[Rfam]
RNA: t44 RNA
Organism: Moellerella wisconsensis
RNA sequence: AAACUCAAUUGUGUAUAACACACACGGGUCGGCACGUACACCGGGGUGCUCUUAUGCGAUUUAUCGCAGCUUUGGAGUCGGUAGUAUGGGAUCCGUGGAGGCAUAAC
Numbered sequence: 001a002a003a004c005u006c007a008a009u010u011g012u013g014u015a016u017a018a019c020a021c022a023c024a025c026g027g028g029u030c031g032g033c034a035c036g037u038a039c040a041c042c043g044g045g046g047u048g049c050u051c052u053u054a055u056g057c058g059a060u061u062u063a064u065c066g067c068a069g070c071u072u073u074g075g076a077g078u079c080g081g082u083a084g085u086a087u088g089g090g091a092u093c094c095g096u097g098g099a100g101g102c103a104u105a106a107c
Base pairs, nucleotide, nucleotide: 023097024096025095026094027093028092029091030090035088036087037086038085039084040082041081042080043079048078049077050076051075052074